Shown here is an 84-nucleotide RNA from Hipposideros armiger, a member of the family "mir-548 microRNA precursor family". A reference for the family is Jima et al. (2010), "Deep sequencing of the small RNA transcriptome of normal and malignant human B cells identifies hundreds of novel microRNAs", Blood.
RNA sequence: UAUUAGGUUGGUGCAAAAGUAAUAGCGGGUUUUGUCAUUACUCCUAAAGACAAAACCCGCUAUUACUUUUGCACCAACCUAACA
Numbered sequence: 001u002a003u004u005a006g007g008u009u010g011g012u013g014c015a016a017a018a019g020u021a022a023u024a025g026c027g028g029g030u031u032u033u034g035u036c037a038u039u040a041c042u043c044c045u046a047a048a049g050a051c052a053a054a055a056c057c058c059g060c061u062a063u064u065a066c067u068u069u070u071g072c073a074c075c076a077a078c079c080u081a082a083c084a
Base pairs, nucleotide, nucleotide: 001084003082004081005080006079007078008077009076010075011074012073013072014071015070016069017068018067019066020065021064022063023062024061025060026059027058028057029056030055031054032053033052034051035050036049038047039046040045
Taxonomically the source falls in Hipposideros (Eukaryota, Gnathostomata, Teleostomi, Euteleostomi). It scores 92 bits against the family's covariance model.